[Rfam]
This 81-nucleotide RNA sequence from Clarias magur belongs to the Rfam family "Small nucleolar RNA SNORD34". It scores 61 bits against the family's covariance model. Clan: SNORD34 clan. On this family, see Galardi et al., Mol Cell Biol 2002: "Purified box C/D snoRNPs are able to reproduce site-specific 2'-O-methylation of target RNA in vitro". The family's RNA type in Rfam is C/D-box small nucleolar RNA. The family's consensus secondary structure was predicted with PFOLD.
RNA sequence: ACAUGUCUGUGAUGCUAAUUUCUACUUUUACCUACAUUGUUUGAUUUUCCUCUGAGAACAUUGAAUCUAACUGAGACAUGU
Numbered sequence: 001a002c003a004u005g006u007c008u009g010u011g012a013u014g015c016u017a018a019u020u021u022c023u024a025c026u027u028u029u030a031c032c033u034a035c036a037u038u039g040u041u042u043g044a045u046u047u048u049c050c051u052c053u054g055a056g057a058a059c060a061u062u063g064a065a066u067c068u069a070a071c072u073g074a075g076a077c078a079u080g081u
Stems, first nucleotide, its partner, number of pairs: 001081002004078004